[Rfam]
RNA sequence: CGCACUGCUCCGGGGUGCCUUUGCGCUGAGACGGCUUUGAUGCCGAACCCGAUGAACUUGAACCGGUUAGUACCGGCGGAAGAAGAGCGUUUCCUGUUGCG
Dot-bracket structure: .....(((((((((.(((......))......(((......))))..)))).....(((...((((......))))...)))..)))))............
Notes:
Shown here is a 101-nucleotide RNA sequence from Rhodoferax koreensis, a member of the family "TPP riboswitch aptamer (THI element)". The base pairs follow the family's consensus structure, which is taken from published work. Lineage of the source: Bacteria > Betaproteobacteria > Burkholderiales > Comamonadaceae > Rhodoferax.